[Rfam]
RNA sequence: AUUUCUAGAAAAGUGACGGACAGGGUCCUUUAGUCUGUCAUUUUUCUGGGAUUUU
Numbered sequence: 001a002u003u004u005c006u007a008g009a010a011a012a013g014u015g016a017c018g019g020a021c022a023g024g025g026u027c028c029u030u031u032a033g034u035c036u037g038u039c040a041u042u043u044u045u046c047u048g049g050g051a052u053u054u055u
Stems, first nucleotide, its partner, number of pairs: 001053001003051019
RNA: MIR8008 microRNA precursor family
Organism: Solanum commersonii